Shown here is an 87-nucleotide sequence from Oceanirhabdus seepicola, a member of the family "c-di-GMP-I riboswitch aptamer".
RNA sequence: ACACGAUAAAGGCAAAAUUAGUGAAAACUAAUGACGCAAAACUACAGGGACUUAGAUGUUUUUACAUUAUGUCAGCCAGUUACCGAA
Numbered sequence: 001a002c003a004c005g006a007u008a009a010a011g012g013c014a015a016a017a018u019u020a021g022u023g024a025a026a027a028c029u030a031a032u033g034a035c036g037c038a039a040a041a042c043u044a045c046a047g048g049g050a051c052u053u054a055g056a057u058g059u060u061u062u063u064a065c066a067u068u069a070u071g072u073c074a075g076c077c078a079g080u081u082a083c084c085g086a087a
Base pairs, nucleotide, nucleotide: 012037013036017032018031019030020029021028022027040081041080042079043078047077048076049073050072051071056067057066058065059064
The match comes from Rfam's covariance-model search (84 bits). Pairs were carried over by alignment from the consensus structure, which is taken from published work.